Shown here is a 78-nucleotide RNA from Xanthomonas oryzae, a member of the family "Xanthomonas sRNA sX9". It scores 72 bits against the family's covariance model. The source organism's lineage runs through Bacteria, Pseudomonadota, Lysobacterales, Xanthomonas and Xanthomonas oryzae pv. oryzae.

[Rfam]
RNA sequence: AUGUACCACGCUUAACAUUCCGGUUCCGAGUGCGCCGGCCGCGCCCACCUGACAGCUGCUCGCGACGUGUUGUUAGCC
Numbered sequence: 001a002u003g004u005a006c007c008a009c010g011c012u013u014a015a016c017a018u019u020c021c022g023g024u025u026c027c028g029a030g031u032g033c034g035c036c037g038g039c040c041g042c043g044c045c046c047a048c049c050u051g052a053c054a055g056c057u058g059c060u061c062g063c064g065a066c067g068u069g070u071u072g073u074u075a076g077c078c
Stems, first nucleotide, its partner, number of pairs: 002017003005013001021037004026032001049076007